The family of this 84-nucleotide RNA from Clostridium carboxidivorans is "ZMP/ZTP riboswitch aptamer (pfl RNA motif)". Lineage of the source: Bacteria > Bacillota > Clostridiaceae > Clostridium > Clostridium carboxidivorans. The family's consensus secondary structure is taken from published work.
[Rfam]
RNA sequence: GUAGAAUCACAUAACUGGCGGAAGUGGAGUUUACCACAGGGAGUGUGAUUUAUACGAAAAAUGUCGACCGCCUGGGCAAACUGU
Number, nucleotide and partner (000 for none) at each position: 001g000002u000003a000004g051005a050006a049007u048008c047009a046010c045011a044012u043013a000014a000015c040016u039017g072018g071019c070020g069021g068022a000023a000024g037025u036026g035027g034028a000029g000030u000031u000032u000033a000034c027035c026036a025037c024038a000039g016040g015041g000042a000043g012044u011045g010046u009047g008048a007049u006050u005051u004052a000053u000054a000055c000056g000057a000058a000059a000060a000061a000062u078063g077064u076065c075066g000067a000068c021069c020070g019071c018072c017073u000074g000075g065076g064077c063078a062079a000080a000081c000082u000083g000084u000